Rfam assigns this 76-nucleotide RNA from Oncorhynchus tshawytscha to the family "mir-30 microRNA precursor family". The match comes from Rfam's covariance-model search (67 bits). Its family is annotated with gene silencing by miRNA and RISC complex in the Gene Ontology. About the family: This family consists of the mammalian microRNA (miRNA) precursor mir-30a. Animal miRNAs are transcribed as ~70nt precursors and subsequently processed by the Dicer enzyme to give a ~22nt product. In this case the mature sequence comes from both the 3' (miR-30) and 5' (mir-97-6) arms of the precursor. The base pairs follow the family's consensus structure, which was predicted with PFOLD.
RNA sequence: AUAGUUAAUGUAAACAUCCUACACUCAGCUGUGAGUUGGCAGCAGAGGCUGGGAGAAGGCUGUUUACUUUAACUGG
Numbered sequence: 001a002u003a004g005u006u007a008a009u010g011u012a013a014a015c016a017u018c019c020u021a022c023a024c025u026c027a028g029c030u031g032u033g034a035g036u037u038g039g040c041a042g043c044a045g046a047g048g049c050u051g052g053g054a055g056a057a058g059g060c061u062g063u064u065u066a067c068u069u070u071a072a073c074u075g076g
Base pairs, nucleotide, nucleotide: 002075003074004073005072006071008069010067011066012065013064014063015062016061018059019058020057022055024053025052026051027050028049029048030047